[Rfam]
A member of the RNA family "Mammalian CPEB3 ribozyme" from Alligator sinensis, 79 nucleotides long.
RNA sequence: AGAGGUUCCAAGUUUGAGGCCAUAGCAGAAGUGCUCAUGGCAUGGCCUGUCAGAUUCUAUUGAAUCUGCAAAUUCUGCU
Number, nucleotide and partner (000 for none) at each position: 001a000002g000003a000004g000005g000006u000007u000008c000009c000010a000011a000012g000013u000014u000015u000016g000017a000018g047019g046020c045021c044022a000023u000024a079025g078026c077027a076028g075029a074030a073031g043032u042033g041034c000035u000036c000037a000038u000039g000040g000041c033042a032043u031044g021045g020046c019047c018048u000049g000050u000051c068052a067053g066054a065055u064056u063057c062058u000059a000060u000061u000062g057063a056064a055065u054066c053067u052068g051069c000070a000071a000072a000073u030074u029075c028076u027077g026078c025079u024